[Rfam]
Nucleotides: 108
Base pairs, nucleotide, nucleotide: 022094023093024092025091028088030086031085032084033083034082035081036080037079038078039077040076041075042074043073050072051071052070053069055067056066
Number, partner (000 for none) and nucleotide at each position: 001000c002000a003000g004000g005000c006000c007000a008000c009000c010000c011000u012000g013000c014000a015000g016000g017000c018000c019000c020000u021000c022094c023093u024092c025091u026000u027000a028088g029000u030086g031085u032084a033083u034082u035081u036080g037079a038078c039077a040076g041075g042074c043073u044000g045000u046000g047000u048000u049000a050072g051071a052070c053069a054000c055067u056066c057000g058000a059000u060000a061000u062000g063000a064000a065000u066056g067055g068000g069053u070052g071051u072050c073043a074042g075041u076040u077039u078038g079037u080036c081035a082034a083033a084032u085031a086030c087000c088028c089000c090000a091025a092024g093023a094022g095000a096000g097000g098000g099000g100000u101000c102000c103000c104000u105000u106000u107000u108000c
The family of this 108-nucleotide RNA from Clupea harengus is "mir-223 microRNA precursor family". The family has 27 seed sequences and 674 matches in Rfam 15.1. Pairs were carried over by alignment from the consensus structure, which was predicted with RNAalifold. Lineage of the source: Eukaryota > Vertebrata > Teleostei > Clupeinae > Clupea. It scores 92 bits against the family's covariance model. Rfam links the family to the GO terms miRNA-mediated post-transcriptional gene silencing and RISC complex.